[Rfam]
RNA sequence: CAAUAGUGCUGUGAAUAAGGCAGUAAGGCUAUGCAAAUAGCCCGAUGAGUCGUCAUUGACCUAGUGUGACUCUGCCGAUAUAGAUUAGGCGCACUAACU
Numbered sequence: 001c002a003a004u005a006g007u008g009c010u011g012u013g014a015a016u017a018a019g020g021c022a023g024u025a026a027g028g029c030u031a032u033g034c035a036a037a038u039a040g041c042c043c044g045a046u047g048a049g050u051c052g053u054c055a056u057u058g059a060c061c062u063a064g065u066g067u068g069a070c071u072c073u074g075c076c077g078a079u080a081u082a083g084a085u086u087a088g089g090c091g092c093a094c095u096a097a098c099u
Stems, first nucleotide, its partner, number of pairs: 004096006019076004027042005047072006054066005
Rfam assigns this 99-nucleotide RNA to the family "Methylophilales-1 RNA". By type it is a small RNA.